[Rfam]
RNA: Alphaproteobacterial sRNA ar9
Organism: Aureimonas fodinaquatilis
RNA sequence: GUCAUACCAAGGUAUCGGGGCUCGAUACCAUACUGAACGGUCUAGUCUUGGGAGGACGUGACUUCUGGCGCAAGCAAUUGCCGCCCUUGGCUUUCAGCCAGGUAUGAAGUCCAGACCUGCAAUUCAAAUGCGAGGCGAAAGCCUCGCAUUUUUUU
Numbered sequence: 001g002u003c004a005u006a007c008c009a010a011g012g013u014a015u016c017g018g019g020g021c022u023c024g025a026u027a028c029c030a031u032a033c034u035g036a037a038c039g040g041u042c043u044a045g046u047c048u049u050g051g052g053a054g055g056a057c058g059u060g061a062c063u064u065c066u067g068g069c070g071c072a073a074g075c076a077a078u079u080g081c082c083g084c085c086c087u088u089g090g091c092u093u094u095c096a097g098c099c100a101g102g103u104a105u106g107a108a109g110u111c112c113a114g115a116c117c118u119g120c121a122a123u124u125c126a127a128a129u130g131c132g133a134g135g136c137g138a139a140a141g142c143c144u145c146g147c148a149u150u151u152u153u154u155u
Base pairs, nucleotide, nucleotide: 004154006152011029012028013027014026015025016024037118039116045057046056047055048054060111061110062109063108064107067085068084069083070081071080072079087101088100089099090098091097092096129148130147131146132145133144134143135142136141